[Rfam]
RNA sequence: CAGUAGCCCUGAUAGAAAUGAAAAUCCUCUUGUUGAUAAGUCUAUUUUUUUCUGGUAGAAAAGAGCGACCCUUGGAAGCUCCUUUUAUGACAUAGAAAAAAAAGGGUUAGCAACAUGAGAUUGUAAUGUAAAGCAGGAAUAGCU
Numbered sequence: 001c002a003g004u005a006g007c008c009c010u011g012a013u014a015g016a017a018a019u020g021a022a023a024a025u026c027c028u029c030u031u032g033u034u035g036a037u038a039a040g041u042c043u044a045u046u047u048u049u050u051u052c053u054g055g056u057a058g059a060a061a062a063g064a065g066c067g068a069c070c071c072u073u074g075g076a077a078g079c080u081c082c083u084u085u086u087a088u089g090a091c092a093u094a095g096a097a098a099a100a101a102a103a104g105g106g107u108u109a110g111c112a113a114c115a116u117g118a119g120a121u122u123g124u125a126a127u128g129u130a131a132a133g134c135a136g137g138a139a140u141a142g143c144u
Stems, first nucleotide, its partner, number of pairs: 009136003013132001018127002023122004029117001031115005
RNA: Flavo-1 RNA